This 54-nucleotide RNA sequence from Synaphobranchus kaupii belongs to the Rfam family "UnaL2 LINE 3' element".
The eel long interspersed element (LINE) UnaL2 and its partner short interspersed element (SINE) share a conserved 3' tail containing a stem-loop that is critical for their retrotransposition. Presumably, the first step of retrotransposition is the recognition of their 3' tails by UnaL2-encoded reverse transcriptase. The solution structure of a 17-nucleotide RNA derived from the 3' tail of UnaL2 was determined by NMR.
Rfam links the family to the GO term transposition, RNA-mediated.
NCBI's taxonomy places the organism under Eukaryota, Teleostomi, Elopocephalai, Elopomorpha, Synaphobranchus.
[Rfam]
RNA sequence: AAUAAGAAGUUGUGUGAGUCGCUCUGGAUAAGAGCGUCUGCUAAAUGUCUAUAA
Numbered sequence: 001a002a003u004a005a006g007a008a009g010u011u012g013u014g015u016g017a018g019u020c021g022c023u024c025u026g027g028a029u030a031a032g033a034g035c036g037u038c039u040g041c042u043a044a045a046u047g048u049c050u051a052u053a054a
Stems, first nucleotide, its partner, number of pairs: 013043001014041003020036006